[Rfam]
RNA sequence: GGUCACGAGAACCGACGCGAAGCCCCGGCUGGUCGGACAGCAACCCCAUCGUCAUGGCGGGGUGCUCCGGGAGAUGACCUGGCUGGUCCCCCGGGACCGGCAAGCCGACGAC
Dot-bracket structure: ((((....(..(((((....((......)).))))).)(((..(((..(......)...))).))).........))))..((((((((....))))))))...........
Numbered sequence: 001g002g003u004c005a006c007g008a009g010a011a012c013c014g015a016c017g018c019g020a021a022g023c024c025c026c027g028g029c030u031g032g033u034c035g036g037a038c039a040g041c042a043a044c045c046c047c048a049u050c051g052u053c054a055u056g057g058c059g060g061g062g063u064g065c066u067c068c069g070g071g072a073g074a075u076g077a078c079c080u081g082g083c084u085g086g087u088c089c090c091c092c093g094g095g096a097c098c099g100g101c102a103a104g105c106c107g108a109c110g111a112c
Stems, first nucleotide, its partner, number of pairs: 001079004009038001012036005021030002039066003044062003049056001082101008
Shown here is a 112-nucleotide RNA sequence from Sanguibacter sp. Leaf3, a member of the family "SAM (S-adenosyl methionine) riboswitch aptamer". The base pairs follow the family's consensus structure, which is taken from published work. Taxonomically the source falls in Sanguibacter (Bacteria, Actinomycetota, Actinomycetes, Micrococcales). Its Rfam clan is "SAM clan".